[Rfam]
RNA sequence: CGAGCCAGCCGGGCGGCCGCGGUACCACGUUUGUGGAUCGAGGAAAGUCCGGGCUCCUUAGGGCGCGGUGGUGGCUAACGGCCACCCGGGGUGACCUGCGGGAAAGUGCCACAGAAAGUAAACCGCCUUUGGUUUAGGCCGUUGGUAAGGGUGAAAGGGUGAGGUAAGAGCUCACCGCAGCCCAGGUGACUGGGUUGGCAUGGUAAACCCCACUGGGAGCAAGAUCGCACAGCGGACGUUUGAGGGCUGCCCGCCCAAGUUCGCGGGUAGAUCGCGUGAGGCCAGUGGUAACGCUGGUCCAAGAUGGAUGGUCGCCGCCGCCUGGCCGGUAACGGUGGGCGGUAACAGAACCCGGCUUAUGGCUGGCUCGUUUC
Number, nucleotide and partner (000 for none) at each position: 001c370002g369003a368004g367005c366006c365007a364008g363009c362010c361011g360012g316013g315014c314015g313016g312017c311018c310019g000020c040021g039022g038023u037024a000025c036026c035027a034028c033029g000030u000031u000032u000033g028034u027035g026036g025037a023038u022039c021040g020041a000042g000043g000044a000045a358046a357047g356048u000049c355050c354051g353052g352053g351054c219055u218056c217057c216058u000059u000060a000061g252062g251063g250064c249065g000066c215067g214068g213069u212070g211071g085072u084073g083074g082075c081076u000077a000078a000079c000080g000081g075082c074083c073084a072085c071086c100087c098088g097089g096090g095091g000092u000093g000094a000095c090096c089097u088098g087099c000100g086101g210102g209103a000104a000105a000106g208107u207108g204109c203110c202111a000112c000113a000114g000115a000116a000117a000118g000119u000120a000121a000122a000123c150124c149125g146126c145127c144128u000129u000130u141131g140132g139133u138134u000135u000136a000137g000138g133139c132140c131141g130142u000143u000144g127145g126146u125147a000148a000149g124150g123151g000152u000153g000154a000155a000156a000157g000158g176159g175160u174161g173162a172163g171164g000165u000166a000167a000168g000169a000170g000171c163172u162173c161174a160175c159176c158177g199178c197179a196180g195181c194182c193183c192184a191185g190186g000187u000188g000189a000190c185191u184192g183193g182194g181195u180196u179197g178198g000199c177200a000201u000202g110203g109204u108205a000206a000207a107208c106209c102210c101211c070212a069213c068214u067215g066216g057217g056218a055219g054220c000221a000222a000223g273224a272225u271226c270227g000228c000229a000230c000231a000232g264233c263234g262235g261236a260237c259238g000239u000240u000241u000242g000243a000244g256245g255246g254247c253248u000249g064250c063251c062252c061253g247254c246255c245256c244257a000258a000259g237260u236261u235262c234263g233264c232265g000266g000267g000268u000269a000270g226271a225272u224273c223274g000275c000276g000277u000278g000279a000280g299281g298282c297283c296284a295285g294286u293287g292288g000289u000290a000291a000292c287293g286294c285295u284296g283297g282298u281299c280300c000301a000302a000303g000304a000305u000306g000307g000308a000309u000310g018311g017312u016313c015314g014315c013316c012317g000318c000319c000320g000321c000322c000323u000324g000325g000326c000327c000328g000329g000330u000331a000332a000333c000334g000335g000336u000337g000338g000339g000340c000341g000342g000343u000344a000345a000346c000347a000348g000349a000350a000351c053352c052353c051354g050355g049356c047357u046358u045359a000360u011361g010362g009363c008364u007365g006366g005367c004368u003369c002370g001371u000372u000373u000374c000